[Rfam]
RNA sequence: UCUGGGCAGCGUAGCGACUGUCUGUAACCCAAGCGGGAGUAAGAGAGAUGGGAGCUGGGGCUCUCGCAGAGGACCGCUGGGAUCAUGUCGAAGGCACGUCCACUCGAAGCGUGGAGUCUCUGAUCUGGGCUUCUCGGCGGAAGUGAGGGAAGUCUGGGGGGAUAAUGUGGAGGGCACAGCGUGAGGCGGGCGACCGAGCAGCGAUCACCUCCCACUCUGCACAGUCGAGGGACAGCGUGUUUGAAUGCUUGUCAGCGAUCAUCCGACGUGAGCAGCCUCCUGCCACCUCUCUC
Number, nucleotide and partner (000 for none) at each position: 001u000002c039003u038004g023005g022006g021007c020008a019009g018010c000011g000012u000013a000014g000015c000016g000017a000018c009019u008020g007021u006022c005023u004024g000025u000026a000027a000028c037029c036030c035031a000032a000033g000034c000035g030036g029037g028038a003039g002040u000041a000042a000043g293044a292045g291046a290047g289048a288049u000050g286051g000052g284053a000054g283055c000056u000057g280058g279059g277060g276061c275062u000063c272064u271065c270066g269067c268068a000069g000070a000071g000072g260073a259074c000075c257076g256077c255078u254079g253080g000081g248082a000083u000084c000085a000086u244087g000088u000089c000090g000091a000092a242093g241094g240095c239096a238097c237098g236099u235100c231101c230102a000103c229104u228105c227106g226107a225108a000109g222110c000111g220112u219113g218114g217115a216116g215117u214118c000119u161120c160121u159122g000123a000124u158125c157126u156127g155128g154129g153130c152131u151132u150133c149134u148135c147136g000137g000138c145139g144140g000141a000142a000143g000144u139145g138146a000147g135148g134149g133150a132151a131152g130153u129154c128155u127156g126157g125158g124159g121160g120161g119162a000163u000164a000165a000166u000167g000168u000169g212170g211171a210172g209173g208174g000175c000176a000177c000178a205179g000180c203181g202182u201183g000184a000185g000186g000187c196188g195189g194190g000191c000192g000193a000194c189195c188196g187197a000198g000199c000200a000201g182202c181203g180204a000205u178206c000207a000208c173209c172210u171211c170212c169213c000214a117215c116216u115217c114218u113219g112220c111221a000222c109223a000224g000225u107226c106227g105228a104229g103230g101231g100232a000233c000234a000235g099236c098237g097238u096239g095240u094241u093242u092243g000244a086245a000246u000247g000248c081249u000250u000251g000252u000253c079254a078255g077256c076257g075258a000259u073260c072261a000262u000263c000264c000265g000266a000267c000268g067269u066270g065271a064272g063273c000274a000275g061276c060277c059278u000279c058280c057281u000282g000283c054284c052285a000286c050287c000288u048289c047290u046291c045292u044293c043

Notes
The record is a 293-nucleotide RNA sequence from Marchantia polymorpha, which matches "Plant signal recognition particle RNA" in Rfam. It scores 127 bits against the family's covariance model. A reference for the family is Wild et al. (2002), "Towards the structure of the mammalian signal recognition particle", Curr Opin Struct Biol.